[Rfam]
Nucleotides: 073
Base pairs, nucleotide, nucleotide: 001064002063003062004061
Number, partner (000 for none) and nucleotide at each position: 001064g002063a003062g004061c005000a006000a007000u008000g009000a010000a011000g012000a013000u014000u015000u016000u017000a018000a019000a020000g021000g022000g023000a024000u025000c026000u027000g028000a029000g030000a031000u032000u033000c034000c035000a036000c037000u038000g039000a040000a041000g042000a043000c044000a045000u046000a047000a048000g049000a050000u051000c052000c053000a054000a055000c056000u057000c058000u059000g060000a061004g062003c063002u064001c065000a066000c067000u068000g069000c070000c071000c072000c073000a
This 73-nucleotide RNA sequence from Centropus unirufus belongs to the Rfam family "Small nucleolar RNA SNORD19". The pairing is the family consensus, mapped onto this sequence. A reference for the family is Huttenhofer et al. (2001), "RNomics: an experimental approach that identifies 201 candidates for novel, small, non-messenger RNAs in mouse", EMBO J. The source organism's lineage runs through Eukaryota, Teleostomi, Dipnotetrapodomorpha, Archelosauria and Centropus. The family is grouped with related families in Rfam's "SNORD19 clan".